[Rfam]
RNA sequence: AUCGCUUCUUCGGCUUAUUAGCUAAGAUCAAAGUGUAGUAUCUGUUCUUAUCGUAUUAACCUACGGUAUACACUCGAAUGAGUGUAAUAAAGGUUAUAUGAUUUUUGGAAUCUAGGAAAGACUCGGGGCUUGCUCCGACUUUCCAAGGGUCGUCCUGGCGUUGCACUACUGCCAGGCUCGGCCCAGUCCCC
Numbered sequence: 001a002u003c004g005c006u007u008c009u010u011c012g013g014c015u016u017a018u019u020a021g022c023u024a025a026g027a028u029c030a031a032a033g034u035g036u037a038g039u040a041u042c043u044g045u046u047c048u049u050a051u052c053g054u055a056u057u058a059a060c061c062u063a064c065g066g067u068a069u070a071c072a073c074u075c076g077a078a079u080g081a082g083u084g085u086a087a088u089a090a091a092g093g094u095u096a097u098a099u100g101a102u103u104u105u106u107g108g109a110a111u112c113u114a115g116g117a118a119a120g121a122c123u124c125g126g127g128g129c130u131u132g133c134u135c136c137g138a139c140u141u142u143c144c145a146a147g148g149g150u151c152g153u154c155c156u157g158g159c160g161u162u163g164c165a166c167u168a169c170u171g172c173c174a175g176g177c178u179c180g181g182c183c184c185a186g187u188c189c190c191c
Stems, first nucleotide, its partner, number of pairs: 007027003012023004049068006070085006115144006122137001125136004147184006154176006

Shown here is a 191-nucleotide sequence from Caenorhabditis brenneri, a member of the family "U2 spliceosomal RNA". NCBI's taxonomy places the organism under Eukaryota, Eumetazoa, Bilateria, Protostomia, Caenorhabditis. The base pairs follow the family's consensus structure, which is taken from published work. Rfam's curators write: U2 is a small nuclear RNA (snRNA) component of the spliceosome (involved in pre-mRNA splicing). Complementary binding between U2 snRNA (in an area lying towards the 5' end but 3' to hairpin I) and the branchpoint sequence (BPS) of the intron results the bulging out of an unpaired adenosine, on the BPS, which initiates a nucleophilic attack at the intronic 5' splice site, thus starting the first of two transesterification reactions that mediate splicing. Rfam links the family to the GO terms pre-mRNA branch point binding, U2 snRNP and mRNA branch site recognition. Rfam's curators put it in the seed alignment.